[Rfam]
RNA sequence: CUCGGGGAUGAUUGUCCAAACGCAAUUCUUGUGUUCCUCGGUGGCAACAGGAGUUGUGGCUGGACAUCAGCCCUCUAG
Numbered sequence: 001c002u003c004g005g006g007g008a009u010g011a012u013u014g015u016c017c018a019a020a021c022g023c024a025a026u027u028c029u030u031g032u033g034u035u036c037c038u039c040g041g042u043g044g045c046a047a048c049a050g051g052a053g054u055u056g057u058g059g060c061u062g063g064a065c066a067u068c069a070g071c072c073c074u075c076u077a078g
Base pairs, nucleotide, nucleotide: 002077004075005074006073007072009069010068011067012066014065015064016063017062018061021058022057023056024055025054026053027052028051029050030049031048
This 78-nucleotide RNA sequence from Merluccius polli belongs to the Rfam family "mir-219 microRNA precursor family". A reference for the family is Lim et al. (2003), "Vertebrate microRNA genes", Science.